[Rfam]
RNA sequence: AAACACCUCAAAGAAUCGCGAACGAAGCAUCACAUACUAAAAGUUAACUAUUUAUAGUUAGACUUUUUUAAAUAUUGCGUAUUCGCCUUUUAGUGGUUGAAUAAAGGCAAUAAAUGCUUUGGGGAAAGUCCUCGGAUACUAGGGCAGAAAGUGUCGCCUUUAGUUUAGGGUCAUAUUAGAGUUCAAUAAUCCUGCGAAGAAUUGAAGUUUUAAACUUUAAUUAUAGCUAUAUGGAUAGAUGAAUAUUUAAUAUUGAUCAUCAUAGCAAAGUUAUGCGAUUGUAUCAAAUCAAAGUUAUUUUAUUAAAGAAAUUGUGAGACUUACUUUUAUGUUUGUCUCUGUUCUCUAAUAAAAUUGAUAUAACACAACGAGGCUUACUCUUGAGAUGUU
Numbered sequence: 001a002a003a004c005a006c007c008u009c010a011a012a013g014a015a016u017c018g019c020g021a022a023c024g025a026a027g028c029a030u031c032a033c034a035u036a037c038u039a040a041a042a043g044u045u046a047a048c049u050a051u052u053u054a055u056a057g058u059u060a061g062a063c064u065u066u067u068u069u070a071a072a073u074a075u076u077g078c079g080u081a082u083u084c085g086c087c088u089u090u091u092a093g094u095g096g097u098u099g100a101a102u103a104a105a106g107g108c109a110a111u112a113a114a115u116g117c118u119u120u121g122g123g124g125a126a127a128g129u130c131c132u133c134g135g136a137u138a139c140u141a142g143g144g145c146a147g148a149a150a151g152u153g154u155c156g157c158c159u160u161u162a163g164u165u166u167a168g169g170g171u172c173a174u175a176u177u178a179g180a181g182u183u184c185a186a187u188a189a190u191c192c193u194g195c196g197a198a199g200a201a202u203u204g205a206a207g208u209u210u211u212a213a214a215c216u217u218u219a220a221u222u223a224u225a226g227c228u229a230u231a232u233g234g235a236u237a238g239a240u241g242a243a244u245a246u247u248u249a250a251u252a253u254u255g256a257u258c259a260u261c262a263u264a265g266c267a268a269a270g271u272u273a274u275g276c277g278a279u280u281g282u283a284u285c286a287a288a289u290c291a292a293a294g295u296u297a298u299u300u301u302a303u304u305a306a307a308g309a310a311a312u313u314g315u316g317a318g319a320c321u322u323a324c325u326u327u328u329a330u331g332u333u334u335g336u337c338u339c340u341g342u343u344c345u346c347u348a349a350u351a352a353a354a355u356u357g358a359u360a361u362a363a364c365a366c367a368a369c370g371a372g373g374c375u376u377a378c379u380c381u382u383g384a385g386a387u388g389u390u
Stems, first nucleotide, its partner, number of pairs: 002390004007385005014280006023121006038092006126376003130373004143155004156171005173251002178248003181244004192238003222231003282360006
Rfam assigns this 390-nucleotide RNA sequence from Piromyces finnis to the family "RNase MRP". The family's RNA type in Rfam is ribozyme. The match comes from Rfam's covariance-model search (69 bits).